[Rfam]
RNA sequence: UAGCCAUCCAGAGCGGCCGAGAGAUCUGGCUUGUUGACGCCGCAGCAACCCUUUAGCGGGUGCUAAUGCCAGUUUCGAUGGGAG
Numbered sequence: 001u002a003g004c005c006a007u008c009c010a011g012a013g014c015g016g017c018c019g020a021g022a023g024a025u026c027u028g029g030c031u032u033g034u035u036g037a038c039g040c041c042g043c044a045g046c047a048a049c050c051c052u053u054u055a056g057c058g059g060g061u062g063c064u065a066a067u068g069c070c071a072g073u074u075u076c077g078a079u080g081g082g083a084g
Stems, first nucleotide, its partner, number of pairs: 001084001004081005013043005021032003026072004044064004049060002051056001068076001
Shown here is an 84-nucleotide sequence from Winkia neuii, a member of the family "SAM riboswitch aptamer (S box leader)". The base pairs follow the family's consensus structure, which is taken from published work.